[Rfam]
RNA sequence: UAUUCCGGUUGGUCUGUGAAUGGGGUAGGAUCCGACGCCUCCUGAAGGCUACAUAGGCUCUCCUACCCAACUCCUAUUCUGGUAUGUCCUAGCCAUACAGACCGUGCACGUGUAGCCCCGUUUAUCUGAGCUUGGGUAAACGGGUCCAAUCCCAACCCCUUGGGAGGAUGGGGUUGCAUGGCCAAGGCAGAAGGG
Numbered sequence: 001u002a003u004u005c006c007g008g009u010u011g012g013u014c015u016g017u018g019a020a021u022g023g024g025g026u027a028g029g030a031u032c033c034g035a036c037g038c039c040u041c042c043u044g045a046a047g048g049c050u051a052c053a054u055a056g057g058c059u060c061u062c063c064u065a066c067c068c069a070a071c072u073c074c075u076a077u078u079c080u081g082g083u084a085u086g087u088c089c090u091a092g093c094c095a096u097a098c099a100g101a102c103c104g105u106g107c108a109c110g111u112g113u114a115g116c117c118c119c120g121u122u123u124a125u126c127u128g129a130g131c132u133u134g135g136g137u138a139a140a141c142g143g144g145u146c147c148a149a150u151c152c153c154a155a156c157c158c159c160u161u162g163g164g165a166g167g168a169u170g171g172g173g174u175u176g177c178a179u180g181g182c183c184a185a186g187g188c189a190g191a192a193g194g195g
Stems, first nucleotide, its partner, number of pairs: 011103007023068008032057002072195004077191002080189002083186001084096003089104001109180006116173004124169004132155005157164002
drz-agam-2-2 ribozyme: a 195-nucleotide RNA sequence from Anopheles sinensis.
Rfam links the family to the GO term catalytic activity.
The match comes from Rfam's covariance-model search (126 bits).